[Rfam]
RNA sequence: AUAGAGCAACGCUUCUAUACAGUUUUAAGUGGGCCCCGUUAAUCUUCUCUGUCGCCAAACAAGUCGAAGAUUAUCGGGGUUUUUGCUU
Numbered sequence: 001a002u003a004g005a006g007c008a009a010c011g012c013u014u015c016u017a018u019a020c021a022g023u024u025u026u027a028a029g030u031g032g033g034c035c036c037c038g039u040u041a042a043u044c045u046u047c048u049c050u051g052u053c054g055c056c057a058a059a060c061a062a063g064u065c066g067a068a069g070a071u072u073a074u075c076g077g078g079g080u081u082u083u084u085g086c087u088u
Stems, first nucleotide, its partner, number of pairs: 001018005027088004031082008040073007

Notes
A member of the RNA family "CopA-like RNA" from Serratia odorifera, 88 nucleotides long. The source organism's lineage runs through Bacteria, Pseudomonadota, Yersiniaceae, Serratia and Serratia odorifera. It scores 86 bits against the family's covariance model. It is annotated as an antisense RNA. The base pairs follow the family's consensus structure, which was predicted with PFOLD. In several groups of bacterial plasmids, antisense RNAs regulate copy number through inhibition of replication initiator protein synthesis. These RNAs are characterised by a long hairpin structure interrupted by several unpaired residues or bulged loops. In plasmid R1, the inhibitory complex between the antisense RNA (CopA) and its target mRNA (CopT) is characterised by a four-way junction structure and a side-by-side helical alignment.